[Rfam]
RNA sequence: CUCUUAUCGAGAGCGGCGGAGGGAAUAGGCCCUGUGAAGCCCGGCAACCAUCAAGCGAAUUUUGCUUGAAAAGGUGCUAAUUCCUACAGGUAAUCUACCUGGAAGAUAAGAG
Dot-bracket structure: ((((((((....(.(((...(((..[[[[)))......))))((((.((.((((((.......))))))...))))))...(]]]]((((((...))))))..)))))))))
A member of the RNA family "SAM riboswitch aptamer (S box leader)" from Bacillus coahuilensis, 112 nucleotides long. The sequence is in the family's curated seed alignment. Taxonomically the source falls in Bacillus coahuilensis (Bacteria, Bacillota, Caryophanales, Bacillus).